[Rfam]
RNA sequence: UAUCCUCUGUGACUCGUGGCAAGGACCACAUAUUUGAACCGAUACGAAUAUGAUAGGGAAUUGGCUGUGGUCACACUGUUGAGCAAGCCCGUUUUCGGGGUCUCAUAACCCCUAAGGGAAGCCUGAAGUCAGUGCCCGCCACUCCCACUUGAGCCUUUGGGUUCAAUCAAUGGACUUGCAACGAUGUCAUAGAGGGUUU
Numbered sequence: 001u002a003u004c005c006u007c008u009g010u011g012a013c014u015c016g017u018g019g020c021a022a023g024g025a026c027c028a029c030a031u032a033u034u035u036g037a038a039c040c041g042a043u044a045c046g047a048a049u050a051u052g053a054u055a056g057g058g059a060a061u062u063g064g065c066u067g068u069g070g071u072c073a074c075a076c077u078g079u080u081g082a083g084c085a086a087g088c089c090c091g092u093u094u095u096c097g098g099g100g101u102c103u104c105a106u107a108a109c110c111c112c113u114a115a116g117g118g119a120a121g122c123c124u125g126a127a128g129u130c131a132g133u134g135c136c137c138g139c140c141a142c143u144c145c146c147a148c149u150u151g152a153g154c155c156u157u158u159g160g161g162u163u164c165a166a167u168c169a170a171u172g173g174a175c176u177u178g179c180a181a182c183g184a185u186g187u188c189a190u191a192g193a194g195g196g197u198u199u
Stems, first nucleotide, its partner, number of pairs: 002197012017183002035165006056146003060143001062141004067137001070136001072134003077128001083122002088118003092114001
Background:
This 199-nucleotide RNA from Coxiella burnetii belongs to the Rfam family "6S / SsrS RNA". The family's RNA type in Rfam is non-coding RNA gene. From the family's description: E. coli 6S RNA was the first non coding RNA to be sequenced, but its function was unknown until recently. The source organism's lineage runs through Bacteria, Gammaproteobacteria, Coxiellaceae, Coxiella and Coxiella burnetii.